[Rfam]
RNA sequence: ACCGGAUUUUAAGCGCCAGAACUUCAUUGUGCGCGUUUCGUUUGGACCGAUUUAGGAAAUCGGCGCGAGAUCAAGGGAACGUUGUUGAGAAGCAGGGGCGGAAGGCUGGCUUGCAGCGACAACGGUGAAUCCUUGAGGCGUUAUUAUCGGUUCAAGCGUACGGCAAAGCGAAGUUGACGAGGUGGAGGUGUUCGGAAUGUUCGGCGGGGGCCUCCCGGUGCUGCAUCGCACCGUAACCGUAUCGGCAAAAGGAUGGGGCGACCUUUCCCACAAACCGUGCGGGCAGAUGGAU
Numbered sequence: 001a002c003c004g005g006a007u008u009u010u011a012a013g014c015g016c017c018a019g020a021a022c023u024u025c026a027u028u029g030u031g032c033g034c035g036u037u038u039c040g041u042u043u044g045g046a047c048c049g050a051u052u053u054a055g056g057a058a059a060u061c062g063g064c065g066c067g068a069g070a071u072c073a074a075g076g077g078a079a080c081g082u083u084g085u086u087g088a089g090a091a092g093c094a095g096g097g098g099c100g101g102a103a104g105g106c107u108g109g110c111u112u113g114c115a116g117c118g119a120c121a122a123c124g125g126u127g128a129a130u131c132c133u134u135g136a137g138g139c140g141u142u143a144u145u146a147u148c149g150g151u152u153c154a155a156g157c158g159u160a161c162g163g164c165a166a167a168g169c170g171a172a173g174u175u176g177a178c179g180a181g182g183u184g185g186a187g188g189u190g191u192u193c194g195g196a197a198u199g200u201u202c203g204g205c206g207g208g209g210g211c212c213u214c215c216c217g218g219u220g221c222u223g224c225a226u227c228g229c230a231c232c233g234u235a236a237c238c239g240u241a242u243c244g245g246c247a248a249a250a251g252g253a254u255g256g257g258g259c260g261a262c263c264u265u266u267c268c269c270a271c272a273a274a275c276c277g278u279g280c281g282g283g284c285a286g287a288u289g290g291a292u
Stems, first nucleotide, its partner, number of pairs: 020175006027168001184215005192204004216233006237282006251268003255264003
RNA: glmS glucosamine-6-phosphate activated ribozyme aptamer
Organism: Paenibacillus sp. oral taxon 786